[Rfam]
Nucleotides: 158
Base pairs, nucleotide, nucleotide: 002155003154004153005152006151007150009148010147011146012145014143015142016141017140018139019138020137021136023134024133025132026131027130028129029128030127032125033124035122036121037120038119039118040117041116042115043114044113045112048109049108050107052105054103055102056101057100058099071086072085073084
Number, partner (000 for none) and nucleotide at each position: 001000c002155u003154g004153u005152u006151a007150a008000a009148u010147g011146a012145u013000a014143a015142u016141g017140u018139g019138a020137c021136a022000c023134a024133u025132g026131a027130a028129g029128u030127g031000c032125c033124a034000c035122g036121u037120c038119a039118u040117u041116a042115c043114g044113u045112u046000c047000a048109a049108u050107c051000c052105u053000g054103g055102a056101c057100a058099c059000a060000u061000c062000a063000c064000u065000g066000a067000c068000a069000c070000u071086u072085c073084a074000c075000u076000a077000a078000a079000g080000g081000u082000g083000a084073u085072g086071a087000c088000g089000u090000g091000a092000u093000a094000a095000u096000g097000a098000g099058g100057u101056g102055u103054u104000c105052g106000u107050g108049a109048u110000a111000a112045a113044g114043c115042g116041u117040g118039a119038u120037g121036a122035c123000a124033u125032g126000a127030c128029a129028c130027u131026u132025u133024g134023u135000u136021u137020g138019u139018c140017a141016c142015a143014u144000c145012a146011u147010c148009a149000c150007u151006u152005a153004a154003c155002g156000a157000a158000a